[Rfam]
RNA sequence: GGACCACUCUUUAAGAGUUAAGGCCAUACGGACAGCUGGGUCCACUGCCGA
Number, nucleotide and partner (000 for none) at each position: 001g043002g042003a041004c040005c039006a018007c017008u016009c015010u014011u000012u000013a000014a010015g009016a008017g007018u006019u000020a000021a000022g000023g000024c000025c000026a000027u000028a000029c000030g000031g000032a000033c000034a000035g000036c000037u000038g000039g005040g004041u003042c002043c001044a000045c000046u000047g000048c000049c000050g000051a000
The record is a 51-nucleotide RNA, which matches "Streptococcus sRNA SpF59 (ldcC RNA)" in Rfam. It is annotated as a small RNA. The base pairs follow the family's consensus structure, which was predicted with mfold.